The record is an 86-nucleotide sequence from Tricholaema leucomelas, which matches "Selenocysteine transfer RNA" in Rfam.
The organism belongs to Tricholaema lacrymosa, within Eukaryota.

[Rfam]
RNA sequence: GCCCGGAUGUCCCUCGGUGGUCUGGGGUGCAGGCCUCAAACCUGUAGGUGCGUAGCGAUAGGGUGGUUCAAUUCCAUCAUUCAGGU
Numbered sequence: 001g002c003c004c005g006g007a008u009g010u011c012c013c014u015c016g017g018u019g020g021u022c023u024g025g026g027g028u029g030c031a032g033g034c035c036u037c038a039a040a041c042c043u044g045u046a047g048g049u050g051c052g053u054a055g056c057g058a059u060a061g062g063g064u065g066g067u068u069c070a071a072u073u074c075c076a077u078c079a080u081u082c083a084g085g086u
Base pairs, nucleotide, nucleotide: 001086002085003084005082006081007080008079009078012027013026014025015024016023017022028046029045030044031043032042033041063077064076065075066074